[Rfam]
RNA sequence: AGUCGCUCAUUCAUCUCGAUAUGUCAGCGUCCUGAGGGAAGCUUAUUUACGCUCCAUAUCUUCCGAAUGAUGCCAAUGUACGGUGCCUACCGUCCAACGUAACCGUUAAUCGUUGCUCCGGCGGCGUUAACAAUCACAGGGCGACACGUUGAGUGAGGCACCCCCUA
Dot-bracket structure: ....((((((((......(((((..(((......................))).))))).....)))))).))........(((((((..(((((.........(((((.................))))).......))))).(((.....)))))))))).....
Shown here is a 167-nucleotide RNA sequence from Sodalis praecaptivus, a member of the family "Glm Y RNA activator of glmS mRNA". A search with the family's covariance model found it, with a score of 126 bits. The organism belongs to Sodalis, within Bacteria.